RNA sequence: CACUCGAAAAAACUGAGUUUAUGUGUGUACUUGACGGCGAUCAGAGCAACGAUCUAGCACCAUAUAAAUUCAGUGUUUUCGUGG
Numbered sequence: 001c002a003c004u005c006g007a008a009a010a011a012a013c014u015g016a017g018u019u020u021a022u023g024u025g026u027g028u029a030c031u032u033g034a035c036g037g038c039g040a041u042c043a044g045a046g047c048a049a050c051g052a053u054c055u056a057g058c059a060c061c062a063u064a065u066a067a068a069u070u071c072a073g074u075g076u077u078u079u080c081g082u083g084g
Stems, first nucleotide, its partner, number of pairs: 012074011024062002027060002030057002033054002035051002
Description: Shown here is an 84-nucleotide sequence from Caenorhabditis briggsae, a member of the family "mir-83 microRNA precursor family". Rfam 15.1 lists 60 matches to the family in 55 species. The source organism's lineage runs through Eukaryota, Metazoa, Protostomia, Rhabditina and Caenorhabditis.